[Rfam]
Rfam assigns this 60-nucleotide RNA from Streptomyces sp. ADI95-17 to the family "Actino-pnp RNA". The family's RNA type in Rfam is cis-regulatory element. Taxonomically the source falls in Streptomyces (Bacteria, Bacillati, Actinomycetes, Kitasatosporales). A search with the family's covariance model found it, with a score of 62 bits.
RNA sequence: GCCGGUCCUCGGUAGUGGCCCCCGGACUCAUCGACCCGGGUGCUUCGAUCGAAGACCGGC
Numbered sequence: 001g002c003c004g005g006u007c008c009u010c011g012g013u014a015g016u017g018g019c020c021c022c023c024g025g026a027c028u029c030a031u032c033g034a035c036c037c038g039g040g041u042g043c044u045u046c047g048a049u050c051g052a053a054g055a056c057c058g059g060c
Base pairs, nucleotide, nucleotide: 001060002059003058004057005056006055007054009052010051011050012049013048017044018043019042021040022039023038024037025036028034029033